[Rfam]
RNA sequence: GCCGUGAUCCGGGCCCCUCUGGUGCGUAACCCGCACGAUGUCGGUUCACCUCA
Numbered sequence: 001g002c003c004g005u006g007a008u009c010c011g012g013g014c015c016c017c018u019c020u021g022g023u024g025c026g027u028a029a030c031c032c033g034c035a036c037g038a039u040g041u042c043g044g045u046u047c048a049c050c051u052c053a
Base pairs, nucleotide, nucleotide: 006047007046009044010043011042012041022036023035024034025033026032
Description
Rfam assigns this 53-nucleotide sequence from Pelagibacterium luteolum to the family "terC RNA".